[Rfam]
RNA: Small nucleolar RNA SNORA63
RNA sequence: AAGCAAAAUUCAGACUACAAUAUGGCUGUUUAGUGCUGUGUUGUCGUUCCUCCUGCUCAAAGUAAGGUUGUUUCUUAACUAUACCUGUCUGUUCCACCUCUGUAGCAGCCAAAGAUGCUUGGUCUCAUACAU
Numbered sequence: 001a002a003g004c005a006a007a008a009u010u011c012a013g014a015c016u017a018c019a020a021u022a023u024g025g026c027u028g029u030u031u032a033g034u035g036c037u038g039u040g041u042u043g044u045c046g047u048u049c050c051u052c053c054u055g056c057u058c059a060a061a062g063u064a065a066g067g068u069u070g071u072u073u074c075u076u077a078a079c080u081a082u083a084c085c086u087g088u089c090u091g092u093u094c095c096a097c098c099u100c101u102g103u104a105g106c107a108g109c110c111a112a113a114g115a116u117g118c119u120u121g122g123u124c125u126c127a128u129a130c131a132u
Base pairs, nucleotide, nucleotide: 003056004055005054017044018043019042020041021040022039023038024037025036026035086111087110089108090107091106092105